Small nucleolar RNA SNORA72: a 132-nucleotide RNA from Sciurus carolinensis. Rfam 15.1 lists 1,541 matches to the family in 547 species. Rfam describes the family as follows. U72 is a member of the H/ACA class of snoRNAs. The snoRNA gene is located in intron 4 of the ribosomal L30 protein gene in human, mouse and chicken. The match comes from Rfam's covariance-model search (135 bits). By type it is an H/ACA-box small nucleolar RNA.
RNA sequence: CUGCAAAUAUUCUUGCUGUUCUGAUUUCGUAAUAAUCAGAACAGGCUAAACAUUCACUAUAUUAAGACCAUCCACGCGUUCCCAGACCUAGUUCUUUCCCUAGGCAUGGUUUUAUAAAUGUUGGUGAUAAAC
Numbered sequence: 001c002u003g004c005a006a007a008u009a010u011u012c013u014u015g016c017u018g019u020u021c022u023g024a025u026u027u028c029g030u031a032a033u034a035a036u037c038a039g040a041a042c043a044g045g046c047u048a049a050a051c052a053u054u055c056a057c058u059a060u061a062u063u064a065a066g067a068c069c070a071u072c073c074a075c076g077c078g079u080u081c082c083c084a085g086a087c088c089u090a091g092u093u094c095u096u097u098c099c100c101u102a103g104g105c106a107u108g109g110u111u112u113u114a115u116a117a118a119u120g121u122u123g124g125u126g127a128u129a130a131a132c
Stems, first nucleotide, its partner, number of pairs: 003057001016044011067125004073120001082109003087104005